[Rfam]
RNA sequence: GAACGAAAUGAUGAUUAGAAUGUUUUGAUAGCUGUUAUGAUGGCUAGUUAUCAUGUAUUAGCUCUACCUGAUCGUUC
Numbered sequence: 001g002a003a004c005g006a007a008a009u010g011a012u013g014a015u016u017a018g019a020a021u022g023u024u025u026u027g028a029u030a031g032c033u034g035u036u037a038u039g040a041u042g043g044c045u046a047g048u049u050a051u052c053a054u055g056u057a058u059u060a061g062c063u064c065u066a067c068c069u070g071a072u073c074g075u076u077c
Stems, first nucleotide, its partner, number of pairs: 002076004030045004